[Rfam]
RNA sequence: CGCUGGGGCUGAAUUAGUGAUUGGCUCUAGCAUUAUUAACCUUUUGGAGUUUAUUUAUGUCACUAACUGCAGCUCAAAAAGCACAAAUCGUUUCUGACUAUGCACGUGCCGAA
Numbered sequence: 001c002g003c004u005g006g007g008g009c010u011g012a013a014u015u016a017g018u019g020a021u022u023g024g025c026u027c028u029a030g031c032a033u034u035a036u037u038a039a040c041c042u043u044u045u046g047g048a049g050u051u052u053a054u055u056u057a058u059g060u061c062a063c064u065a066a067c068u069g070c071a072g073c074u075c076a077a078a079a080a081g082c083a084c085a086a087a088u089c090g091u092u093u094c095u096g097a098c099u100a101u102g103c104a105c106g107u108g109c110c111g112a113a
Base pairs, nucleotide, nucleotide: 007026008025009024010023011022012021044066045065046064047063049061
Shown here is a 113-nucleotide sequence from Aliidiomarina sanyensis, a member of the family "Ribosomal S15 leader". The family's consensus secondary structure is taken from published work. Its Rfam clan is "Ribosomal Protein S15 Leader clan". The organism belongs to Aliidiomarina, within Bacteria. Rfam's curators write: The E. coli Ribosomal S15 gene 5' UTR can form two alternative structures. One that is a series of three hairpins, The other includes a pseudoknot. Rfam classes the family as a cis-regulatory leader. For this family Rfam cites "Pseudoknot and translational control in the expression of the S15 ribosomal protein" (Benard et al., Biochimie, 1996).